[Rfam]
RNA sequence: UAAUCCGUGAGGAUUGGUCUGAAGUAAGCGAGACUACAAAGGUUGGUACUGACAUUCGGAAACGAUAGUUUUCGACCAAUUGAAUAAGAGGCUUGUAAAAUCGGAUAAGUUGCCACAUCACAACAACGUCCAAAGCUCUGCAUAGAGAUUGUAUUUUACAAGUAGAUUCAGCAGUGAUUAACCGAAGGACAAUUAC
Numbered sequence: 001u002a003a004u005c006c007g008u009g010a011g012g013a014u015u016g017g018u019c020u021g022a023a024g025u026a027a028g029c030g031a032g033a034c035u036a037c038a039a040a041g042g043u044u045g046g047u048a049c050u051g052a053c054a055u056u057c058g059g060a061a062a063c064g065a066u067a068g069u070u071u072u073c074g075a076c077c078a079a080u081u082g083a084a085u086a087a088g089a090g091g092c093u094u095g096u097a098a099a100a101u102c103g104g105a106u107a108a109g110u111u112g113c114c115a116c117a118u119c120a121c122a123a124c125a126a127c128g129u130c131c132a133a134a135g136c137u138c139u140g141c142a143u144a145g146a147g148a149u150u151g152u153a154u155u156u157u158a159c160a161a162g163u164a165g166a167u168u169c170a171g172c173a174g175u176g177a178u179u180a181a182c183c184g185a186a187g188g189a190c191a192a193u194u195a196c
Stems, first nucleotide, its partner, number of pairs: 001016006028196001030194002037188001041183006047176005080171006091163003095159007103131004109124004